[Rfam]
RNA sequence: UGACCUCAGAUCAGUCGAGACUACCCGCUGAAUUUAAGCAUAUUAAUAAGCGGAGGAAAAGAAACUAACAAGGAUUCCCCUAGUAACGGCGAGUGAAGCGGGAAAAGCUCAAGCUUGAAAUCUCUGAUCUUUGUGGUCAGCGAAUUGUAGUCUCGAGAAGUACUGUCACAGCGAAGUGGUCGCGGUAAAGUUGCUUGGAACGGCACGUCAUAGAGGGUGAGAACCCCGUGUGUGCCGCGACCGCUCGCCCACGAGGUGCUUUCUCAGAGUCGGGUUGCUUGGGAAUGCAGCCCAAAACGGGAGGUAGACUCCUUCUAAAGCUAAAUAUGGGCACGAGACCGAUAGCGAACAAGUACCGUGAGGGAAAGAUGAAAAGCACUUUGAAAAGAAAGUUAAGAGUACGUGAAACCGUUAGUAGGGAAG
Dot-bracket structure: .......................((((((.....((....))......))))).).........((....))...((((......((.....)).....))))..((((...(((..((.((.((((.........)))).)).))..))).....((((((.(.((.......((((((((((((...(.((((......)))))..(...)..((.......)).......)))))))))))).......)).))))).))........(((((((........))))))).....(((((........)))))..)))).................................((....))................(((....)))..................................
RNA: Eukaryotic large subunit ribosomal RNA, nucleotides 1 to 423